This 181-nucleotide RNA from Chanos chanos belongs to the Rfam family "Small nucleolar RNA SNORA23". The members of this family belong to the H/ACA class of snoRNAs which are thought to guide the sites of modification of uridines to pseudouridines. This family includes human snoRNA ACA23 (SNORA23) and mouse snoMBI-1. ACA23 is predicted to guide the pseudouridylation of residue U3737 and U4331 of 28S rRNA. The base pairs follow the family's consensus structure, which was predicted with RNAalifold. Its family is annotated with RNA processing and nucleolus in the Gene Ontology.

RNA sequence: GGUGGUAGGUGUGCGUAGUGUCAGUCUGCGUUUAGUACAGUCUCCAGUCUGUGUUUUACAGGCUGUGUGACUGUGCUCACACCACACCUGUAGCCAUAGAGUCACUGGAGAUCAUAGUACUGGCUUAGUGAUGUCUCUGUGACCAUCUCCCACUGGCCAGCCUCCAUUCUCUCCUACAAAA
Number, nucleotide and partner (000 for none) at each position: 001g000002g000003u000004g000005g000006u000007a000008g000009g000010u000011g000012u000013g091014c090015g089016u000017a000018g000019u000020g000021u000022c000023a000024g000025u000026c000027u000028g000029c000030g082031u081032u000033u079034a000035g077036u075037a074038c073039a072040g071041u070042c000043u000044c067045c065046a064047g063048u000049c000050u060051g059052u058053g000054u000055u000056u000057u000058a052059c051060a050061g000062g000063c047064u046065g045066u000067g044068u000069g000070a041071c040072u039073g038074u037075g036076c000077u035078c000079a033080c000081a031082c030083c000084a000085c000086a000087c000088c000089u015090g014091u013092a000093g000094c000095c000096a000097u000098a000099g000100a000101g000102u000103c000104a000105c000106u000107g174108g173109a172110g171111a170112u000113c000114a000115u000116a000117g000118u000119a000120c160121u159122g158123g157124c156125u155126u000127a154128g153129u152130g151131a000132u145133g144134u142135c141136u000137c000138u000139g000140u000141g135142a134143c000144c133145a132146u000147c000148u000149c000150c000151c130152a129153c128154u127155g125156g124157c123158c122159a121160g120161c000162c000163u000164c000165c000166a000167u000168u000169c000170u111171c110172u109173c108174c107175u000176a000177c000178a000179a000180a000181a000